[Rfam]
RNA sequence: AACAUUAUAAAAGCGCCAGGACUUAUCCCGAGCGGUGGGGUAAGUUGACGAGGUGGAGGUUUAUCGAACCAUUCGGCGGAUGCCUCCCGAUUGCACACAUCUCAGUCGUCAUGUUUUAGAGCCGAAAGCAGAGAGGCGACUCUUUGGAUAAGGACAAAACAAGAUGUGAAA
Numbered sequence: 001a002a003c004a005u006u007a008u009a010a011a012a013g014c015g016c017c018a019g020g021a022c023u024u025a026u027c028c029c030g031a032g033c034g035g036u037g038g039g040g041u042a043a044g045u046u047g048a049c050g051a052g053g054u055g056g057a058g059g060u061u062u063a064u065c066g067a068a069c070c071a072u073u074c075g076g077c078g079g080a081u082g083c084c085u086c087c088c089g090a091u092u093g094c095a096c097a098c099a100u101c102u103c104a105g106u107c108g109u110c111a112u113g114u115u116u117u118a119g120a121g122c123c124g125a126a127a128g129c130a131g132a133g134a135g136g137c138g139a140c141u142c143u144u145u146g147g148a149u150a151a152g153g154a155c156a157a158a159a160c161a162a163g164a165u166g167u168g169a170a171a
Base pairs, nucleotide, nucleotide: 020046021045022044023043024042025041026040027039029037055087056086057085058084059083064076065075066074067073088108089107090106091105092104093103112161113160114159115158116157117156129146130145131144132143133142134141135140
The family of this 171-nucleotide RNA from Terribacillus saccharophilus is "glmS glucosamine-6-phosphate activated ribozyme aptamer". A search with the family's covariance model found it, with a score of 106 bits. It is annotated as a riboswitch.